[Rfam]
RNA sequence: UGAUAGCUAUGAAGCGUGAGGUUGCUGCCUGAAACAGGGCAGGUUUUCCGUGGAGCGAAUGUCAAGUCGAAGAAACUGGCGACAA
Number, nucleotide and partner (000 for none) at each position: 001u000002g000003a000004u000005a000006g000007c000008u000009a000010u000011g000012a000013a000014g051015c050016g049017u000018g048019a047020g046021g045022u000023u000024g000025c042026u041027g040028c039029c038030u000031g000032a000033a000034a000035c000036a000037g000038g029039g028040c027041a026042g025043g000044u000045u021046u020047u019048c018049c016050g015051u014052g000053g000054a000055g000056c000057g000058a000059a000060u084061g083062u082063c081064a000065a000066g080067u079068c078069g077070a000071a000072g000073a000074a000075a000076c000077u069078g068079g067080c066081g063082a062083c061084a060085a000
This 85-nucleotide RNA belongs to the Rfam family "S10-Clostridia ribosomal protein leader". It is one of the family's seed sequences. The base pairs follow the family's consensus structure, which is taken from published work. On this family, see Eckert and Weinberg, BMC Microbiol 2020: "Discovery of 20 novel ribosomal leader candidates in bacteria and archaea".